The family of this 84-nucleotide sequence from Drosophila rhopaloa is "mir-973 microRNA precursor family".
Taxonomically the source falls in Sophophora (Eukaryota, Bilateria, Eumetabola, Panorpida).
Its family is annotated with RISC complex and miRNA-mediated post-transcriptional gene silencing in the Gene Ontology.
It scores 71 bits against the family's covariance model.
Rfam 15.1 lists 13 matches to the family in 13 species.
Pairs were carried over by alignment from the consensus structure, which was predicted with RNAalifold.
RNA sequence: CGACUUCUCGUGUUUGGCGUCUGAACUCAGAUUCUUAACAGUUGUGUUAAAUAAAAUCUGUUCAUUCCUCGACACAAGAAGUUG
Numbered sequence: 001c002g003a004c005u006u007c008u009c010g011u012g013u014u015u016g017g018c019g020u021c022u023g024a025a026c027u028c029a030g031a032u033u034c035u036u037a038a039c040a041g042u043u044g045u046g047u048u049a050a051a052u053a054a055a056a057u058c059u060g061u062u063c064a065u066u067c068c069u070c071g072a073c074a075c076a077a078g079a080a081g082u083u084g
Stems, first nucleotide, its partner, number of pairs: 002083007010075003014072004019067001022064005029059005